[Rfam]
RNA sequence: GGGUGUUCGCGCUGCAUGUCGCAGCGAAACAGGUUCUUGCGCUGGUCGGGCCGCCGCG
Numbered sequence: 001g002g003g004u005g006u007u008c009g010c011g012c013u014g015c016a017u018g019u020c021g022c023a024g025c026g027a028a029a030c031a032g033g034u035u036c037u038u039g040c041g042c043u044g045g046u047c048g049g050g051c052c053g054c055c056g057c058g
Stems, first nucleotide, its partner, number of pairs: 005030003010026005040058003044055003